Shown here is a 106-nucleotide RNA from Geosporobacter ferrireducens, a member of the family "PyrR binding site". The source organism's lineage runs through Bacteria, Bacillati, Clostridia, Peptostreptococcales and Geosporobacter.
RNA sequence: AAUCCCUUUAAUUUAACCCCGUGAGGUUAAAAAGGUUGAAUAGAUCCUAUCUACGGAUUCUGGUUCUCUAUGCCUUUUUGCCUGCGGGUAAAAAGGUAUUUUUUAU
Numbered sequence: 001a002a003u004c005c006c007u008u009u010a011a012u013u014u015a016a017c018c019c020c021g022u023g024a025g026g027u028u029a030a031a032a033a034g035g036u037u038g039a040a041u042a043g044a045u046c047c048u049a050u051c052u053a054c055g056g057a058u059u060c061u062g063g064u065u066c067u068c069u070a071u072g073c074c075u076u077u078u079u080g081c082c083u084g085c086g087g088g089u090a091a092a093a094a095g096g097u098a099u100u101u102u103u104u105a106u
Stems, first nucleotide, its partner, number of pairs: 005035005013030006038065002041062004049058003070099012